[Rfam]
RNA sequence: AUAUCCAUGAUGACUCCCACAUGUGCGUUCCUUGGAAAGCUGAACAUAGUGAAUGAGGAAUCCUUUACUAUUGUCCUCAUGGAGGCUGAGGUCU
Numbered sequence: 001a002u003a004u005c006c007a008u009g010a011u012g013a014c015u016c017c018c019a020c021a022u023g024u025g026c027g028u029u030c031c032u033u034g035g036a037a038a039g040c041u042g043a044a045c046a047u048a049g050u051g052a053a054u055g056a057g058g059a060a061u062c063c064u065u066u067a068c069u070a071u072u073g074u075c076c077u078c079a080u081g082g083a084g085g086c087u088g089a090g091g092u093c094u
Stems, first nucleotide, its partner, number of pairs: 001094001003092003026055005033046002

Small nucleolar RNA SNORD116: a 94-nucleotide sequence from Canis lupus.
By type it is a C/D-box small nucleolar RNA.
Its family is annotated with nucleolus and RNA processing in the Gene Ontology.
The source organism's lineage runs through Eukaryota, Sarcopterygii, Amniota, Eutheria and Canis lupus.
The match comes from Rfam's covariance-model search (68 bits).